[Rfam]
RNA sequence: ACAGUGCAAUAAGCGCCAGAACAAGGGUAGCAGGGCUUUUAACCAUUGCCCCUUGUUGACGAGGAGAAGGAGGUUAUCGAAAGUUUCGGCGGAAACCUUCCGGUGCGCCAUCAUCGAUAAGACACUACAAAACCUGCCGGCGACGGCAGGGACAGAAUGUGUCGGAUUGGCCU
Numbered sequence: 001a002c003a004g005u006g007c008a009a010u011a012a013g014c015g016c017c018a019g020a021a022c023a024a025g026g027g028u029a030g031c032a033g034g035g036c037u038u039u040u041a042a043c044c045a046u047u048g049c050c051c052c053u054u055g056u057u058g059a060c061g062a063g064g065a066g067a068a069g070g071a072g073g074u075u076a077u078c079g080a081a082a083g084u085u086u087c088g089g090c091g092g093a094a095a096c097c098u099u100c101c102g103g104u105g106c107g108c109c110a111u112c113a114u115c116g117a118u119a120a121g122a123c124a125c126u127a128c129a130a131a132a133c134c135u136g137c138c139g140g141c142g143a144c145g146g147c148a149g150g151g152a153c154a155g156a157a158u159g160u161g162u163c164g165g166a167u168u169g170g171c172c173u
Base pairs, nucleotide, nucleotide: 020057021056022055023054024053025052026051027050066100067099068098069097070096077089078088079087080086101116102115103114104113105112121163122162123161124160125159133150134149135148136147137146138145139144
Rfam assigns this 173-nucleotide RNA sequence from Thermoclostridium caenicola to the family "glmS glucosamine-6-phosphate activated ribozyme aptamer". By type it is a riboswitch. It scores 94 bits against the family's covariance model. Lineage of the source: Bacteria > Bacillati > Eubacteriales > Oscillospiraceae > Thermoclostridium. Pairs were carried over by alignment from the consensus structure, which is taken from published work.